[Rfam]
RNA sequence: AGCGCUUCCUUGUUCUCGGUUUGGCCUCUUCUCUAGGUAUGAACAUGAAGGAAGCGCUAAGAGUAAAUCCUUCUUUGCAACCCACAGCUCCUUGCCUUGUAGGAGUUGUGUUACUAAUGGGAAGGGACAUC
Numbered sequence: 001a002g003c004g005c006u007u008c009c010u011u012g013u014u015c016u017c018g019g020u021u022u023g024g025c026c027u028c029u030u031c032u033c034u035a036g037g038u039a040u041g042a043a044c045a046u047g048a049a050g051g052a053a054g055c056g057c058u059a060a061g062a063g064u065a066a067a068u069c070c071u072u073c074u075u076u077g078c079a080a081c082c083c084a085c086a087g088c089u090c091c092u093u094g095c096c097u098u099g100u101a102g103g104a105g106u107u108g109u110g111u112u113a114c115u116a117a118u119g120g121g122a123a124g125g126g127a128c129a130u131c
Stems, first nucleotide, its partner, number of pairs: 001058009011048001012044003068127004074121004083110010
RNA: Small nucleolar RNA SNORA40
Organism: Eleutherodactylus coqui